[Rfam]
RNA sequence: CCGGCUCCGGUUCACCCCGGCUACCAGCGCGGGGACCCGGCGGCC
Numbered sequence: 001c002c003g004g005c006u007c008c009g010g011u012u013c014a015c016c017c018c019g020g021c022u023a024c025c026a027g028c029g030c031g032g033g034g035a036c037c038c039g040g041c042g043g044c045c
Stems, first nucleotide, its partner, number of pairs: 003045003007040004015034005020028003
The record is a 45-nucleotide RNA sequence from Actinosynnema mirum, which matches "L31-Actinobacteria ribosomal protein leader" in Rfam. By type it is a cis-regulatory leader. Lineage of the source: Bacteria > Actinomycetes > Pseudonocardiaceae > Actinosynnema > Actinosynnema mirum.